This 42-nucleotide sequence from Ixodes scapularis belongs to the Rfam family "Guanidine-II riboswitch aptamer (mini-ykkC)".

Nucleotides: 042
Stems, first nucleotide, its partner, number of pairs: 001020003005016004031042004
Number, partner (000 for none) and nucleotide at each position: 001020c002019c003018u004000a005016g006015a007014g008013g009000a010000c011000g012000a013008c014007c015006u016005c017000g018003a019002g020001g021000a022000u023000g024000a025000c026000a027000c028000c029000u030000a031042g032041a033040g034039g035000a036000c037000g038000a039034c040033c041032u042031c
For this family Rfam cites "Identification of 22 candidate structured RNAs in bacteria using the CMfinder comparative genomics pipeline" (Weinberg et al., Nucleic Acids Res, 2007).